[Rfam]
RNA sequence: GAGAAAGAGGGUGCGACUCCCUCUCGCCGUAAGGUUAAGGUUUCCCGGGCAACGUUCGUCGUCCCGGGGUUAGUCGGGUCCUAAGGCUCAGCCGCAAGGCGAGGUCGAUGGUCAUGCGUUUAAUAUUCCGCAACUGUCUUUAAGAGCGAUGUGGUGACGGAGAAGUGACACUUCCGCGUCCUGACGGAAUAGGACGUUUAACGACAAAGGCGUAGAUGAUUACAGGCAAAUCCAUAAUCAGAGCCGAAGUCGGAAAGUACGAAAGGCCUUCGGGCUGCUCGAGUGAAGGUAAUCCGGCUCCCAAGAAAACCCGCUAGCAUUAUUUUAAAGACACCCGUACCGUAAACGGACACACGUAACCGCGUAGAAUAUACUAAGGCGCU
Numbered sequence: 001g002a003g004a005a006a007g008a009g010g011g012u013g014c015g016a017c018u019c020c021c022u023c024u025c026g027c028c029g030u031a032a033g034g035u036u037a038a039g040g041u042u043u044c045c046c047g048g049g050c051a052a053c054g055u056u057c058g059u060c061g062u063c064c065c066g067g068g069g070u071u072a073g074u075c076g077g078g079u080c081c082u083a084a085g086g087c088u089c090a091g092c093c094g095c096a097a098g099g100c101g102a103g104g105u106c107g108a109u110g111g112u113c114a115u116g117c118g119u120u121u122a123a124u125a126u127u128c129c130g131c132a133a134c135u136g137u138c139u140u141u142a143a144g145a146g147c148g149a150u151g152u153g154g155u156g157a158c159g160g161a162g163a164a165g166u167g168a169c170a171c172u173u174c175c176g177c178g179u180c181c182u183g184a185c186g187g188a189a190u191a192g193g194a195c196g197u198u199u200a201a202c203g204a205c206a207a208a209g210g211c212g213u214a215g216a217u218g219a220u221u222a223c224a225g226g227c228a229a230a231u232c233c234a235u236a237a238u239c240a241g242a243g244c245c246g247a248a249g250u251c252g253g254a255a256a257g258u259a260c261g262a263a264a265g266g267c268c269u270u271c272g273g274g275c276u277g278c279u280c281g282a283g284u285g286a287a288g289g290u291a292a293u294c295c296g297g298c299u300c301c302c303a304a305g306a307a308a309a310c311c312c313g314c315u316a317g318c319a320u321u322a323u324u325u326u327a328a329a330g331a332c333a334c335c336c337g338u339a340c341c342g343u344a345a346a347c348g349g350a351c352a353c354a355c356g357u358a359a360c361c362g363c364g365u366a367g368a369a370u371a372u373a374c375u376a377a378g379g380c381g382c383u
Base pairs, nucleotide, nucleotide: 006024007023008022009021010020011019025381026380027379028378033361034360035359036358039341040340044068045067046066047065048064049063053061054060075337076336077335078334080111081110085106086105087104091100092099093098115132116131117130118129135333136332137331138330139329140328141327142326143325144324145323146318147317151314152313153312154311159301160300161299162298165294171288172287173286174285176197177196178195179194180193181192198257199256202252203251204250205249209245210244211243217240218239219238220237221236222235225233226232260281261280265276266275267274268273347356348355364374365373366372

This 383-nucleotide part of an RNA from Alloprevotella tannerae belongs to the Rfam family "Bacterial large subunit ribosomal RNA". Its family is annotated with ribosome and structural constituent of ribosome in the Gene Ontology. The family is grouped with related families in Rfam's "LSU clan".